Shown here is a 68-nucleotide RNA from Echinops telfairi, a member of the family "Small nucleolar RNA SNORD102". The family has 11 seed sequences and 443 matches in Rfam 15.1. Gene Ontology terms of the family: nucleolus and RNA processing. The family's RNA type in Rfam is C/D-box small nucleolar RNA. Rfam's curators put it in the seed alignment.

[Rfam]
RNA sequence: AGCUUGAUGAUGAUUGUUUGAUUGCUUUGAAGCAACAUGAAAAAUCCAUUUCACCGGCUCUGAGAGCU
Numbered sequence: 001a002g003c004u005u006g007a008u009g010a011u012g013a014u015u016g017u018u019u020g021a022u023u024g025c026u027u028u029g030a031a032g033c034a035a036c037a038u039g040a041a042a043a044a045u046c047c048a049u050u051u052c053a054c055c056g057g058c059u060c061u062g063a064g065a066g067c068u
Stems, first nucleotide, its partner, number of pairs: 001068005